[Rfam]
RNA sequence: AGCAGAGUAGGUCACAAUGCGUUAAGUGCCGCUGAGACGGGGAGUUGUUCAGCGGACGAAAGGGACGAAAAUCCCCCUGCGGUAUUGUGGCCGCAUCCCGCUGCU
Dot-bracket structure: (((((....(((((((((((((...((.((((((((...[[[.[...))))))))))...((((..........))))))).)))))))))).].]]]..)))))
A member of the RNA family "THF (Tetrahydrofolate) riboswitch aptamer" from Agathobaculum faecis, 105 nucleotides long.
Gene Ontology term of the family: tetrahydrofolate metabolic process.
The literature on the family includes a 2010 paper in Chem Biol by Ames et al., "A eubacterial riboswitch class that senses the coenzyme tetrahydrofolate".
The base pairs follow the family's consensus structure, which is taken from published work.
Rfam describes the family as follows. Tetrahydrofolate (THF) riboswitch was first reported for Ames et al. as an RNA motif in 5' untranslated (5'-UTR)regions of folate transport and biosynthesis genes in Firmicutes genomes.
It scores 97 bits against the family's covariance model.